Annotation:
The record is a 68-nucleotide sequence from Gracilibacillus dipsosauri, which matches "Bacillaceae-1 RNA" in Rfam. Rfam 15.1 lists 5,721 matches to the family in 247 species. Rfam classes the family as a small RNA.
RNA sequence: UACAGCGGAUCUUCAACUAAGUACCACCACGUCCUGUGGUGAACGUUGAAGCCACCACUUCCUGUGGA
Numbered sequence: 001u002a003c004a005g006c007g008g009a010u011c012u013u014c015a016a017c018u019a020a021g022u023a024c025c026a027c028c029a030c031g032u033c034c035u036g037u038g039g040u041g042a043a044c045g046u047u048g049a050a051g052c053c054a055c056c057a058c059u060u061c062c063u064g065u066g067g068a
Stems, first nucleotide, its partner, number of pairs: 011051007026040005055067004